[Rfam]
RNA sequence: GGUGAUCCACACCGGUGCUUCGGACAGCGGUUCGAUUCCGCUCAGCUCCACUGCUUCCCAUCUCGGGGCUGCAAUGGUUUCGACGGGGUAUGAGGAGGGUGACUGAAGCCUGCUCGGUAAGAGCAAAUCCGUAACAGCGAAUAACAUCGUUCGUUUCUCCCGUCAGACCGCCCCCGUGGCCGCCUGA
Numbered sequence: 001g002g003u004g005a006u007c008c009a010c011a012c013c014g015g016u017g018c019u020u021c022g023g024a025c026a027g028c029g030g031u032u033c034g035a036u037u038c039c040g041c042u043c044a045g046c047u048c049c050a051c052u053g054c055u056u057c058c059c060a061u062c063u064c065g066g067g068g069c070u071g072c073a074a075u076g077g078u079u080u081c082g083a084c085g086g087g088g089u090a091u092g093a094g095g096a097g098g099g100u101g102a103c104u105g106a107a108g109c110c111u112g113c114u115c116g117g118u119a120a121g122a123g124c125a126a127a128u129c130c131g132u133a134a135c136a137g138c139g140a141a142u143a144a145c146a147u148c149g150u151u152c153g154u155u156u157c158u159c160c161c162g163u164c165a166g167a168c169c170g171c172c173c174c175c176g177u178g179g180c181c182g183c184c185u186g187a
Base pairs, nucleotide, nucleotide: 001104002103003102005100016090017089018088020086021085022084026042027041028040029039030038043071044070045069046068047067048066049065
A member of the RNA family "permuted transfer-messenger RNA" from a Cyanobacteriota bacterium, 187 nucleotides long.